[Rfam]
This 134-nucleotide sequence belongs to the Rfam family "Small nucleolar RNA SNORA48". The sequence is in the family's curated seed alignment. Rfam classes the family as an H/ACA-box small nucleolar RNA. Pairs were carried over by alignment from the consensus structure, which was predicted with RNAalifold.

RNA sequence: UGUUCUGACAUGGGAAGAGUAGCUUCUGGUUGGUGGAGCCCAUCUCACAUUAGCCAGAGACAAAGCAACACCUUGUUUAUCCCGGCUUGGCUUUUGGCCUGUGUCCAUGACUGGUCCAUACCUUGGACACAUGG
Numbered sequence: 001u002g003u004u005c006u007g008a009c010a011u012g013g014g015a016a017g018a019g020u021a022g023c024u025u026c027u028g029g030u031u032g033g034u035g036g037a038g039c040c041c042a043u044c045u046c047a048c049a050u051u052a053g054c055c056a057g058a059g060a061c062a063a064a065g066c067a068a069c070a071c072c073u074u075g076u077u078u079a080u081c082c083c084g085g086c087u088u089g090g091c092u093u094u095u096g097g098c099c100u101g102u103g104u105c106c107a108u109g110a111c112u113g114g115u116c117c118a119u120a121c122c123u124u125g126g127a128c129a130c131a132u133g134g
Stems, first nucleotide, its partner, number of pairs: 001062002003059005011052003017046003022039005074129006089122002095118003099114003104109001